This 300-nucleotide RNA sequence from Marchantia polymorpha belongs to the Rfam family "Metazoan signal recognition particle RNA". Rfam classes the family as a non-coding RNA gene. A search with the family's covariance model found it, with a score of 87 bits.

[Rfam]
RNA sequence: UCUGGGCAGGGGUAGCGGCUGUCUGUAACCCGAGCGGGAGUAGGAGAGAUGGGAGCUGGGGCCUCUGGCAGAGGGCCGCCGGGAUCAUGUGGAAGGCACGUCCACGCGAAGCGUGGAGUCUCCGGUCCGGGCUCCUCCGCUGAAGCGAGAGAGGAGUCCACGGAGAUGAUGCGGAAGGCACAGCGUCAGGCGGGCGACCGAGCAGCGAUCACUUCGCGCUCUGCGCAGUCGAGGGCCAGCGUGCUCGAAUGCUCGCCGGCGAUCAUCCCACGCCAGAAGCCUCCUGCCACCUCUCUCUAG
Dot-bracket structure: .((((((((.........))))))....(((....)))))..(((((((.(...((.(((((.((((((.((.(...(((((.(.(((.(....(((((((((.(.(((.((((((((((((((....((((((((((((....)))...))))))))).))))).(...)..((((....(.(((....(((....)))....))).)..))))..)))))))))..))).)))...))))))).).))).)..)))))...).))....)))))).)).))).))..).)))))))..
Numbered sequence: 001u002c003u004g005g006g007c008a009g010g011g012g013u014a015g016c017g018g019c020u021g022u023c024u025g026u027a028a029c030c031c032g033a034g035c036g037g038g039a040g041u042a043g044g045a046g047a048g049a050u051g052g053g054a055g056c057u058g059g060g061g062c063c064u065c066u067g068g069c070a071g072a073g074g075g076c077c078g079c080c081g082g083g084a085u086c087a088u089g090u091g092g093a094a095g096g097c098a099c100g101u102c103c104a105c106g107c108g109a110a111g112c113g114u115g116g117a118g119u120c121u122c123c124g125g126u127c128c129g130g131g132c133u134c135c136u137c138c139g140c141u142g143a144a145g146c147g148a149g150a151g152a153g154g155a156g157u158c159c160a161c162g163g164a165g166a167u168g169a170u171g172c173g174g175a176a177g178g179c180a181c182a183g184c185g186u187c188a189g190g191c192g193g194g195c196g197a198c199c200g201a202g203c204a205g206c207g208a209u210c211a212c213u214u215c216g217c218g219c220u221c222u223g224c225g226c227a228g229u230c231g232a233g234g235g236c237c238a239g240c241g242u243g244c245u246c247g248a249a250u251g252c253u254c255g256c257c258g259g260c261g262a263u264c265a266u267c268c269c270a271c272g273c274c275a276g277a278a279g280c281c282u283c284c285u286g287c288c289a290c291c292u293c294u295c296u297c298u299a300g
Stems, first nucleotide, its partner, number of pairs: 002040002004024006029038003043298007051290001055287002058284003061280002064277006071267002074264001078260005084253001086251003090247001095245007102235002105233001107231003111226009120165005129159009138147003167171001174215004182209001184207003191200003